Annotation: Shown here is a 99-nucleotide sequence from Actinidia chinensis, a member of the family "MIR398 microRNA precursor family".
RNA sequence: GCAUAUACCACAGGAGUGACGCUUGGAACACAUGGUGGGGUUUUGGGUGCUAUCUAAAAAUUGCACCGUGUGUUCUUAGGUCACCCCUUUGGGGCACCU
Numbered sequence: 001g002c003a004u005a006u007a008c009c010a011c012a013g014g015a016g017u018g019a020c021g022c023u024u025g026g027a028a029c030a031c032a033u034g035g036u037g038g039g040g041u042u043u044u045g046g047g048u049g050c051u052a053u054c055u056a057a058a059a060a061u062u063g064c065a066c067c068g069u070g071u072g073u074u075c076u077u078a079g080g081u082c083a084c085c086c087c088u089u090u091g092g093g094g095c096a097c098c099u
Base pairs, nucleotide, nucleotide: 008092012088013087014086016084017083018082019081025076026075027074028073029072030071031070032069033068
About this RNA: It scores 57 bits against the family's covariance model. Taxonomically the source falls in Actinidia chinensis (Eukaryota, Streptophytina, Spermatophyta, Actinidia). Rfam 15.1 lists 627 matches to the family in 211 species. Pairs were carried over by alignment from the consensus structure, which was predicted with WAR.